[Rfam]
RNA sequence: GCCACCGAGGAGCGCUGCAACCCGGGACCAUCGAGGUCCGGGCCAGGCUCGGGGACGGGGCAUACAGUUCGAACGGCGCUCACUCACG
Numbered sequence: 001g002c003c004a005c006c007g008a009g010g011a012g013c014g015c016u017g018c019a020a021c022c023c024g025g026g027a028c029c030a031u032c033g034a035g036g037u038c039c040g041g042g043c044c045a046g047g048c049u050c051g052g053g054g055a056c057g058g059g060g061c062a063u064a065c066a067g068u069u070c071g072a073a074c075g076g077c078g079c080u081c082a083c084u085c086a087c088g
Stems, first nucleotide, its partner, number of pairs: 003054001005052004021042006